[Rfam]
Rfam assigns this 88-nucleotide sequence from Glareola pratincola to the family "Z6 small nucleolar RNA". Rfam links the family to the GO terms RNA processing and nucleolus. Pairs were carried over by alignment from the consensus structure, which was predicted with PFOLD. By type it is a C/D-box small nucleolar RNA. Rfam 15.1 lists 212 matches to the family in 144 species.
RNA sequence: UGGUGGCAUUGGGGACCCUGUCCUAGGACCACGGGGACCUUUCUGGGGACACUGGGGACCCAGGACAGAUGCUCCCACACUGGGACCA
Numbered sequence: 001u002g003g004u005g006g007c008a009u010u011g012g013g014g015a016c017c018c019u020g021u022c023c024u025a026g027g028a029c030c031a032c033g034g035g036g037a038c039c040u041u042u043c044u045g046g047g048g049a050c051a052c053u054g055g056g057g058a059c060c061c062a063g064g065a066c067a068g069a070u071g072c073u074c075c076c077a078c079a080c081u082g083g084g085a086c087c088a
Base pairs, nucleotide, nucleotide: 001088002087003086004085